[Rfam]
RNA sequence: GGGCGGCAAGCGCUGGAAUAACGCCGAGUUGGCCUUCGGGCUGGCAGCGCCCUUCACGGGCGUGGGACAGGCGCCAGGGGCCGCCCCUCAC
Numbered sequence: 001g002g003g004c005g006g007c008a009a010g011c012g013c014u015g016g017a018a019u020a021a022c023g024c025c026g027a028g029u030u031g032g033c034c035u036u037c038g039g040g041c042u043g044g045c046a047g048c049g050c051c052c053u054u055c056a057c058g059g060g061c062g063u064g065g066g067a068c069a070g071g072c073g074c075c076a077g078g079g080g081c082c083g084c085c086c087c088u089c090a091c
Stems, first nucleotide, its partner, number of pairs: 001086007011078001013077004022073004028045007048062004
Shown here is a 91-nucleotide RNA sequence, a member of the family "DUF3800-VII RNA". Rfam's curators put it in the seed alignment. The family's RNA type in Rfam is small RNA. The family's consensus secondary structure is taken from published work.